[Rfam]
RNA sequence: AAAGACAAAACGAAUAAAGCUCGUAUAAUAAUGGGGAUAUGGCCCAUAAGUUUCUACCGGAUGACCAAUGUAAUCAUCCGACUAUGAGUGAGAGCGCCCGCGCC
Numbered sequence: 001a002a003a004g005a006c007a008a009a010a011c012g013a014a015u016a017a018a019g020c021u022c023g024u025a026u027a028a029u030a031a032u033g034g035g036g037a038u039a040u041g042g043c044c045c046a047u048a049a050g051u052u053u054c055u056a057c058c059g060g061a062u063g064a065c066c067a068a069u070g071u072a073a074u075c076a077u078c079c080g081a082c083u084a085u086g087a088g089u090g091a092g093a094g095c096g097c098c099c100g101c102g103c104c
Base pairs, nucleotide, nucleotide: 019089020088021087022086023085024084025083029049031047032046033045034044035043058080059079060078061077062076063075064074
Rfam assigns this 104-nucleotide sequence from Paenibacillaceae bacterium GAS479 to the family "Purine riboswitch aptamer". NCBI's taxonomy places the organism under Bacteria, Bacillota, Bacilli, Caryophanales, Paenibacillaceae.